[Rfam]
Rfam assigns this 101-nucleotide sequence to the family "skipping-rope RNA". The sequence is in the family's curated seed alignment.
RNA sequence: UAAGUUAGAGGUUGAAAAGUAUUAAGUUACGCUGUCUCAACACGCUAUACUCGAAAGAGAAGUAACAAGAAAUGUGGGGGGUGGCAGUCCCACCUAACUUU
Numbered sequence: 001u002a003a004g005u006u007a008g009a010g011g012u013u014g015a016a017a018a019g020u021a022u023u024a025a026g027u028u029a030c031g032c033u034g035u036c037u038c039a040a041c042a043c044g045c046u047a048u049a050c051u052c053g054a055a056a057g058a059g060a061a062g063u064a065a066c067a068a069g070a071a072a073u074g075u076g077g078g079g080g081g082u083g084g085c086a087g088u089c090c091c092a093c094c095u096a097a098c099u100u101u
Stems, first nucleotide, its partner, number of pairs: 002100007011041005032087005043069001044063003074093005